The family of this 159-nucleotide RNA from Buttiauxella agrestis is "Glm Y RNA activator of glmS mRNA". By type it is a small RNA. Taxonomically the source falls in Buttiauxella agrestis (Bacteria, Pseudomonadati, Pseudomonadota, Enterobacterales). The family's consensus secondary structure is taken from published work. It scores 113 bits against the family's covariance model. The family is grouped with related families in Rfam's "Glm clan". On this family, see Rivas et al., Curr Biol 2001: "Computational identification of noncoding RNAs in E. coli by comparative genomics".
[Rfam]
RNA sequence: AGUGGCUCAUUCACCCUCCUAUGUCAGCCCCCGCAAGGGUUGUGCUACAUAAAACUUAGAAUGACGCACUCCAGGUGCCUGCCGUCCACCUUUUGAUUAUUGUCAGUCUUGUACUGCUUUAUCAUGCUCCGGGCGAAACGUUGAGUAAGGCACCGCCUG
Numbered sequence: 001a002g003u004g005g006c007u008c009a010u011u012c013a014c015c016c017u018c019c020u021a022u023g024u025c026a027g028c029c030c031c032c033g034c035a036a037g038g039g040u041u042g043u044g045c046u047a048c049a050u051a052a053a054a055c056u057u058a059g060a061a062u063g064a065c066g067c068a069c070u071c072c073a074g075g076u077g078c079c080u081g082c083c084g085u086c087c088a089c090c091u092u093u094u095g096a097u098u099a100u101u102g103u104c105a106g107u108c109u110u111g112u113a114c115u116g117c118u119u120u121a122u123c124a125u126g127c128u129c130c131g132g133g134c135g136a137a138a139c140g141u142u143g144a145g146u147a148a149g150g151c152a153c154c155g156c157c158u159g
Stems, first nucleotide, its partner, number of pairs: 005067002007064006020051005026046003074154007083135005094124004099119001138146002

This family consists of a number of bacterial RNA genes of around 167 bases in length.